[Rfam]
RNA sequence: AUACUCAUGUGAUCGCUGUAUAAUAUAUACAGAGGAAAGUCCAUGCUCACACAAACUGCGAUGUUUGUAGUGUUCGUGCUUGACGAAUUCAUAAGUCAAGGUAACCAUUUGGUUAACGGCAGGAUAGCUACCUACGUCUAUUAGAUAUGGAAGCUAGCCUUGAAAGUGCCACAGUGACGUAGCUGAUUUGGAAACAUUUCAGGUGGAACGAGGUAAACCCCACGAGUGAGCAACCCAAAUAAUGGUAGGGGCACUCUUUAGUAGGGAAAUGAACCGAAAAAGGGACAAGUAUAAACUUGUAGAUAGAUGAUUACAACCGGCGUACGAGGUUGACCACCGAUGGCAGUACAAUGGAACAGAACAUGGCUUAUCGAG
Numbered sequence: 001a002u003a004c005u006c007a008u009g010u011g012a013u014c015g016c017u018g019u020a021u022a023a024u025a026u027a028u029a030c031a032g033a034g035g036a037a038a039g040u041c042c043a044u045g046c047u048c049a050c051a052c053a054a055a056c057u058g059c060g061a062u063g064u065u066u067g068u069a070g071u072g073u074u075c076g077u078g079c080u081u082g083a084c085g086a087a088u089u090c091a092u093a094a095g096u097c098a099a100g101g102u103a104a105c106c107a108u109u110u111g112g113u114u115a116a117c118g119g120c121a122g123g124a125u126a127g128c129u130a131c132c133u134a135c136g137u138c139u140a141u142u143a144g145a146u147a148u149g150g151a152a153g154c155u156a157g158c159c160u161u162g163a164a165a166g167u168g169c170c171a172c173a174g175u176g177a178c179g180u181a182g183c184u185g186a187u188u189u190g191g192a193a194a195c196a197u198u199u200c201a202g203g204u205g206g207a208a209c210g211a212g213g214u215a216a217a218c219c220c221c222a223c224g225a226g227u228g229a230g231c232a233a234c235c236c237a238a239a240u241a242a243u244g245g246u247a248g249g250g251g252c253a254c255u256c257u258u259u260a261g262u263a264g265g266g267a268a269a270u271g272a273a274c275c276g277a278a279a280a281a282g283g284g285a286c287a288a289g290u291a292u293a294a295a296c297u298u299g300u301a302g303a304u305a306g307a308u309g310a311u312u313a314c315a316a317c318c319g320g321c322g323u324a325c326g327a328g329g330u331u332g333a334c335c336a337c338c339g340a341u342g343g344c345a346g347u348a349c350a351a352u353g354g355a356a357c358a359g360a361a362c363a364u365g366g367c368u369u370a371u372c373g374a375g
Stems, first nucleotide, its partner, number of pairs: 004375003007371001008315007016032006037369003041366005046230005051068006074225005079100006101117001102115005118220002121160003129152001131150002136146003166218002168214003183202004189196002234250003254284006285300006317354003322349004
Dot-bracket structure: ...(((((((((((.((((((.....))))))....[[[.[[[[[(((((((((((......)))))).....(((((((((((..........))))))((((((....))))).)((.(((.....(.((...(((.....)))..)).).....))).....(((((............((((..((....))..)))).........)))..))))))))))))))...(((...........)))...((((((...................))))))((((((....))))))........))))))).(((..((((....................))))..))).......]]]]]]]].).)))

The record is a 375-nucleotide RNA sequence from Virgibacillus salarius, which matches "Bacterial RNase P class B" in Rfam. Rfam links the family to the GO terms ribonuclease P activity, tRNA processing and dimeric ribonuclease P complex. The family is grouped with related families in Rfam's "RNaseP clan". Rfam classes the family as a ribozyme.